[Rfam]
RNA: Group II catalytic intron D1-D4-7
Organism: Acetobacterium woodii
RNA sequence: CCAAUCAUUCCGUUGGUUGAGCCUAGUAUCACCUGCAUUGUUAGUAAUGACAUUGUUGGGAAGCUGAUAUGAAAAAGUAACCCUCUAUAAGGUUGAACCGUGAGGGAAUACCGAUACUGCUAGCAACAAAGCAGUUAGGGAG
Number, nucleotide and partner (000 for none) at each position: 001c000002c019003a018004a017005u016006c015007a014008u000009u000010c000011c000012g000013u000014u007015g006016g005017u004018u003019g002020a000021g000022c000023c000024u000025a000026g000027u069028a068029u067030c066031a065032c060033c059034u058035g056036c055037a054038u000039u052040g051041u050042u049043a048044g000045u000046a000047a000048u043049g042050a041051c040052a039053u000054u037055g036056u035057u000058g034059g033060g032061a000062a000063g000064c000065u031066g030067a029068u028069a027070u000071g000072a000073a000074a000075a000076a000077g000078u000079a000080a000081c000082c000083c000084u000085c000086u000087a000088u000089a000090a000091g112092g111093u110094u000095g000096a000097a000098c105099c104100g000101u000102g000103a000104g099105g098106g000107a000108a000109u000110a093111c092112c091113g000114a000115u000116a135117c134118u133119g132120c131121u130122a000123g000124c000125a000126a000127c000128a000129a000130a121131g120132c119133a118134g117135u116136u000137a000138g000139g000140g000141a000142g000